RNA sequence: AAUUAUUCUGUAACAGAGUUUACAAAUAAUA
Numbered sequence: 001a002a003u004u005a006u007u008c009u010g011u012a013a014c015a016g017a018g019u020u021u022a023c024a025a026a027u028a029a030u031a
Stems, first nucleotide, its partner, number of pairs: 002030006009024005014018001
This 31-nucleotide RNA from Cyprinus carpio belongs to the Rfam family "Iron response element II". About the family: IRE, TFRC, SLC40A1, SDHB, SLC11A2, CDC42BPA, ACO2, ALAS2_H.SAPIENS, CDC14A, EPAS1, ALAS2, qoxD, Hao1, NDUFS1, transferrin, Aconitate. The source organism's lineage runs through Eukaryota, Craniata, Vertebrata, Gnathostomata and Cyprinus carpio. The family has 30 seed sequences and 5,197 matches in Rfam 15.1. For this family Rfam cites "A cytosolic protein binds to structural elements within the iron regulatory region of the transferrin receptor mRNA" (Koeller et al., Proc Natl Acad Sci U S A, 1989). The base pairs follow the family's consensus structure, which is taken from published work. Gene Ontology term of the family: response to iron ion.